[Rfam]
RNA: FMN riboswitch aptamer (RFN element)
RNA sequence: ACAAUUCUUCGAGGCAGGGUGAAAUUCCCGACCGGCGGUAAAGUCCGCAACCCGCUUUUUAAGCGGCUGAAUCCCGAAUGGGUACCGAUAGUUACAGUCUAGAUGGGAGAAGGUAUGC
Number, nucleotide and partner (000 for none) at each position: 001a000002c000003a116004a000005u000006u113007c112008u111009u110010c109011g000012a000013g000014g000015c000016a000017g029018g028019g027020u000021g000022a000023a000024a000025u000026u000027c019028c018029c017030g000031a098032c097033c087034g086035g048036c047037g046038g045039u000040a000041a000042a000043g085044u084045c038046c037047g036048c035049a000050a000051c000052c066053c065054g000055c000056u000057u000058u000059u000060u000061a000062a000063g000064c000065g053066g052067c000068u000069g000070a000071a083072u082073c081074c080075c000076g000077a000078a000079u000080g074081g073082g072083u071084a044085c043086c034087g033088a000089u101090a100091g099092u000093u000094a000095c000096a000097g032098u031099c091100u090101a089102g000103a000104u000105g000106g000107g000108a000109g010110a009111a008112g007113g006114u000115a000116u003117g000118c000